[Rfam]
RNA sequence: GGACUAGGCCGGGCGGUUUGGCUCCGCCCGACACCCGUGAGACAGUCAUCAGCGGGGGCCGAACACCGGGCGCGUCCGACCGCCGCGGUCGGCCCCGGAAGCCAACGUGGAAGCCUCGUCCGUCGGGGACGGCGGUCCGCGGCGUGCGCCCGCAGGGGCGUUCCGUCGUGGUUCGACGGUGGCAACCCGCCAGGCACGGAAGUGAGCAGCGGACCACCGAACGCCCGUCGCUCGACGGGUCGCGGGGUGGAGAAGGCGACCGGGACUACCCGGCCGGGAACGCCGGGCUACCCCGACUGUCCAC
Numbered sequence: 001g002g003a004c005u006a007g008g009c010c011g012g013g014c015g016g017u018u019u020g021g022c023u024c025c026g027c028c029c030g031a032c033a034c035c036c037g038u039g040a041g042a043c044a045g046u047c048a049u050c051a052g053c054g055g056g057g058g059c060c061g062a063a064c065a066c067c068g069g070g071c072g073c074g075u076c077c078g079a080c081c082g083c084c085g086c087g088g089u090c091g092g093c094c095c096c097g098g099a100a101g102c103c104a105a106c107g108u109g110g111a112a113g114c115c116u117c118g119u120c121c122g123u124c125g126g127g128g129a130c131g132g133c134g135g136u137c138c139g140c141g142g143c144g145u146g147c148g149c150c151c152g153c154a155g156g157g158g159c160g161u162u163c164c165g166u167c168g169u170g171g172u173u174c175g176a177c178g179g180u181g182g183c184a185a186c187c188c189g190c191c192a193g194g195c196a197c198g199g200a201a202g203u204g205a206g207c208a209g210c211g212g213a214c215c216a217c218c219g220a221a222c223g224c225c226c227g228u229c230g231c232u233c234g235a236c237g238g239g240u241c242g243c244g245g246g247g248u249g250g251a252g253a254a255g256g257c258g259a260c261c262g263g264g265a266c267u268a269c270c271c272g273g274c275c276g277g278g279a280a281c282g283c284c285g286g287g288c289u290a291c292c293c294c295g296a297c298u299g300u301c302c303a304c
Base pairs, nucleotide, nucleotide: 001302002301003300004299007060008059009058010057011029012028013027014026015025016024034056035055036054037053038052067295068294069293070292074288075287076286077285078283084278086276087275088274089273090272091271092270094264095263096262097261098260101257102256103255106252108250113248114247115246116245117244118243119242120238121237122236123235124234125233126232127231128229129228130227131226132225133223134222135174137171138170139169140168141166144163146161147160148159149158150157151156177219178218179217180216181215182214187212188211189210190209195204196203197202
Dot-bracket structure: ((((..((((((((((.......))))))....(((((.............)))))))))......((((...(((((.....(.(((((((.(((((..(((..(.(....(((((((((((((((((((((((.(((((..(.((((((....)))))).)..).))))..)..((((((....((((....(((....)))....)))).))))))..)).))))).))))))))...))))))).).)..)))..))))).....))))))).)....).))))...))))...))))..
Source information
Rfam assigns this 304-nucleotide RNA from Halobacterium salinarum to the family "Archaeal signal recognition particle RNA". It is annotated as a non-coding RNA gene. Rfam links the family to the GO terms signal recognition particle, plasma membrane targeting and SRP-dependent cotranslational protein targeting to membrane, signal sequence recognition. The base pairs follow the family's consensus structure, which is taken from published work.